[Rfam]
RNA: ftsZ-DE RNA
Organism: Fibrobacter sp. UWR2
RNA sequence: GGGUGCGCCUCUCUAGCGCACUCACCACAACACAAGGGAGUCGCCCGGGUCUCCCUGCUCGGGCGACUCUUCU
Numbered sequence: 001g002g003g004u005g006c007g008c009c010u011c012u013c014u015a016g017c018g019c020a021c022u023c024a025c026c027a028c029a030a031c032a033c034a035a036g037g038g039a040g041u042c043g044c045c046c047g048g049g050u051c052u053c054c055c056u057g058c059u060c061g062g063g064c065g066a067c068u069c070u071u072c073u
Stems, first nucleotide, its partner, number of pairs: 001023008036071015